[Rfam]
RNA sequence: GAGGCCAAACCUCAAUGAGCACACUCUUCGUUUGCUCCAAGACAUAAAUUGACUUUAUAUAGUACGAGUCAAUUUAAUAACCUCUCUGGUAGUUGGAA
Numbered sequence: 001g002a003g004g005c006c007a008a009a010c011c012u013c014a015a016u017g018a019g020c021a022c023a024c025u026c027u028u029c030g031u032u033u034g035c036u037c038c039a040a041g042a043c044a045u046a047a048a049u050u051g052a053c054u055u056u057a058u059a060u061a062g063u064a065c066g067a068g069u070c071a072a073u074u075u076a077a078u079a080a081c082c083u084c085u086c087u088g089g090u091a092g093u094u095g096g097a098a
Base pairs, nucleotide, nucleotide: 001013002012003011004010017037018036019035020034021033023031024030045076046075047074048073049072050071051070052069054067055066081096082095
Rfam assigns this 98-nucleotide RNA sequence from Prochlorococcus marinus to the family "Cyanobacterial functional RNA 13".
On this family, see Steglich et al., PLoS Genet 2008: "The challenge of regulation in a minimal photoautotroph: non-coding RNAs in Prochlorococcus".